The record is a 149-nucleotide sequence from Myotis myotis, which matches "U4 spliceosomal RNA" in Rfam. Its family is annotated with spliceosomal tri-snRNP complex assembly and U4 snRNP in the Gene Ontology. It scores 66 bits against the family's covariance model. The family is grouped with related families in Rfam's "U4 clan". Lineage of the source: Eukaryota > Vertebrata > Boreoeutheria > Yangochiroptera > Myotis.

[Rfam]
RNA sequence: AGCUUUGCGCAGUGGCAGUAUCGUAGCCAAUGAGGUUUAUCUGAGGCGCGAUUAUUGCUAAAAAAAAAUUAAAAUAAAAUAAAAUCCCUUCCUUGAAUGCGGAGGUCCUCGGAGCAAGGACCAAUGGAUUUAUCCCCAUUUGUCAGAUG
Numbered sequence: 001a002g003c004u005u006u007g008c009g010c011a012g013u014g015g016c017a018g019u020a021u022c023g024u025a026g027c028c029a030a031u032g033a034g035g036u037u038u039a040u041c042u043g044a045g046g047c048g049c050g051a052u053u054a055u056u057g058c059u060a061a062a063a064a065a066a067a068a069u070u071a072a073a074a075u076a077a078a079a080u081a082a083a084a085u086c087c088c089u090u091c092c093u094u095g096a097a098u099g100c101g102g103a104g105g106u107c108c109u110c111g112g113a114g115c116a117a118g119g120a121c122c123a124a125u126g127g128a129u130u131u132a133u134c135c136c137c138a139u140u141u142g143u144c145a146g147a148u149g
Base pairs, nucleotide, nucleotide: 020052021051022050023049024048026047027046028045034042035041088118089117090116091114093112094111095110096109099106100105131149132148133147134146